[Rfam]
RNA sequence: AGAUCACAUGUUGACGUGAAUGGGCUAUAACCUAUCCUUUGGAUGGCUAAGGCCCAGGAAAGUCCCCGGGCCCAUAACCGCAGAGAUGCGGGCUCAGAAAUGAGUUAUGCUUCAUGGGCUGGAGUCCAAAUCUCAUAAAUGGGAUUGGGCUGAGACGAGGUGGAGCUAUGAUUCCAGCCCAGAAGCCCAAUUGGCCAAUAAAACAGUUAUUCACGUGGUCUAGUUAACCUAGACUAACUGAACGGGGCUUACAAUCAUGUGGUC
Numbered sequence: 001a002g003a004u005c006a007c008a009u010g011u012u013g014a015c016g017u018g019a020a021u022g023g024g025c026u027a028u029a030a031c032c033u034a035u036c037c038u039u040u041g042g043a044u045g046g047c048u049a050a051g052g053c054c055c056a057g058g059a060a061a062g063u064c065c066c067c068g069g070g071c072c073c074a075u076a077a078c079c080g081c082a083g084a085g086a087u088g089c090g091g092g093c094u095c096a097g098a099a100a101u102g103a104g105u106u107a108u109g110c111u112u113c114a115u116g117g118g119c120u121g122g123a124g125u126c127c128a129a130a131u132c133u134c135a136u137a138a139a140u141g142g143g144a145u146u147g148g149g150c151u152g153a154g155a156c157g158a159g160g161u162g163g164a165g166c167u168a169u170g171a172u173u174c175c176a177g178c179c180c181a182g183a184a185g186c187c188c189a190a191u192u193g194g195c196c197a198a199u200a201a202a203a204c205a206g207u208u209a210u211u212c213a214c215g216u217g218g219u220c221u222a223g224u225u226a227a228c229c230u231a232g233a234c235u236a237a238c239u240g241a242a243c244g245g246g247g248c249u250u251a252c253a254a255u256c257a258u259g260u261g262g263u264c
Stems, first nucleotide, its partner, number of pairs: 002264009014216006022055004032046006060250003064247004079090004091106006109187001115181007129173004159166001218234006
Dot-bracket structure: .(((((((((...((((((..((((......((((((...)))))).....))))....[[[.[[[[...........((((....))))((((((....))))))..(.....(((((((.......((((..........................(......)...)))).))))))).....).......................)))))).((((((.....)))))).........]]]]]]].....)))))))))
Rfam assigns this 264-nucleotide RNA from Solanum tuberosum to the family "RNase MRP". The organism belongs to Solanum, within Eukaryota. RNase MRP is an enzymatically active ribonucleoprotein with two distinct roles in eukaryotes. In mitochondria it plays a direct role in the initiation of mitochondrial DNA replication. Its Rfam clan is "RNaseP clan". A search with the family's covariance model found it, with a score of 84 bits.